MIR825 microRNA precursor family: a 146-nucleotide RNA sequence from Arabidopsis lyrata. NCBI's taxonomy places the organism under Eukaryota, Embryophyta, Tracheophyta, Brassicales, Arabidopsis. Rfam links the family to the GO terms miRNA-mediated post-transcriptional gene silencing and RISC complex.
[Rfam]
RNA sequence: GGUAUAAUUCACUGAUUGAUUCCAUCAACUCGUUCAAGCACCAGCUCGAAGAAGCGUAGCUAAUUUAUCUUAGAAAAUCAUGGAUUUGAAAAAGCUACGCUUCUCGAGAAGGUGCAUGAACAAGUUGAUGCAUAUUUUGAUCUGCA
Numbered sequence: 001g002g003u004a005u006a007a008u009u010c011a012c013u014g015a016u017u018g019a020u021u022c023c024a025u026c027a028a029c030u031c032g033u034u035c036a037a038g039c040a041c042c043a044g045c046u047c048g049a050a051g052a053a054g055c056g057u058a059g060c061u062a063a064u065u066u067a068u069c070u071u072a073g074a075a076a077a078u079c080a081u082g083g084a085u086u087u088g089a090a091a092a093a094g095c096u097a098c099g100c101u102u103c104u105c106g107a108g109a110a111g112g113u114g115c116a117u118g119a120a121c122a123a124g125u126u127g128a129u130g131c132a133u134a135u136u137u138u139g140a141u142c143u144g145c146a
Stems, first nucleotide, its partner, number of pairs: 002145003009140003014136003023130008032121005038115005045108005051103011